[Rfam]
RNA sequence: CUCUGGGCCCGCCUGUAGGCUCAGGGCAGAAAGAG
Numbered sequence: 001c002u003c004u005g006g007g008c009c010c011g012c013c014u015g016u017a018g019g020c021u022c023a024g025g026g027c028a029g030a031a032a033g034a035g
Stems, first nucleotide, its partner, number of pairs: 001026008
RNA: L31-Firmicutes ribosomal protein leader